A member of the RNA family "mir-1299 microRNA precursor family" from Pan troglodytes, 83 nucleotides long. The family has 3 seed sequences and 113 matches in Rfam 15.1. The organism belongs to Pan, within Eukaryota. Pairs were carried over by alignment from the consensus structure, which was predicted with RNAalifold.
RNA sequence: CCUCAUAGCAGUGUUCUGGAAUUCUGUGUGAGGGACAGAAAUUCAGAUCCUCACAGCAGUGUUCUGGAAUCCUGUGUGAGGGA
Numbered sequence: 001c002c003u004c005a006u007a008g009c010a011g012u013g014u015u016c017u018g019g020a021a022u023u024c025u026g027u028g029u030g031a032g033g034g035a036c037a038g039a040a041a042u043u044c045a046g047a048u049c050c051u052c053a054c055a056g057c058a059g060u061g062u063u064c065u066g067g068a069a070u071c072c073u074g075u076g077u078g079a080g081g082g083a
Base pairs, nucleotide, nucleotide: 001081002080003079004078005077006076007075009074010073011072013070014069015068016067017066018065019064020063021062022061024059025058027056028054029053030052032050033049034048